[Rfam]
RNA sequence: UCAAAAUGAUGAGGCCAUGGCAGAAGCACUCAUAGCAUAGCCUGUCAGAUUUCAGUGAAUCUGUAAAUUCUGCU
Numbered sequence: 001u002c003a004a005a006a007u008g009a010u011g012a013g014g015c016c017a018u019g020g021c022a023g024a025a026g027c028a029c030u031c032a033u034a035g036c037a038u039a040g041c042c043u044g045u046c047a048g049a050u051u052u053c054a055g056u057g058a059a060u061c062u063g064u065a066a067a068u069u070c071u072g073c074u
Stems, first nucleotide, its partner, number of pairs: 014041002019074007026038001046063007

A member of the RNA family "Mammalian CPEB3 ribozyme" from Crocodylus porosus, 74 nucleotides long. Rfam links the family to the GO term RNA nuclease activity. The organism belongs to Crocodylus, within Eukaryota. The family's consensus secondary structure is taken from published work. A search with the family's covariance model found it, with a score of 42 bits. About the family: The mammalian CPEB3 ribozyme is a self cleaving RNA located in the second intron of the CPEB3 gene which belongs to a family of genes regulating messenger RNA polyadenylation.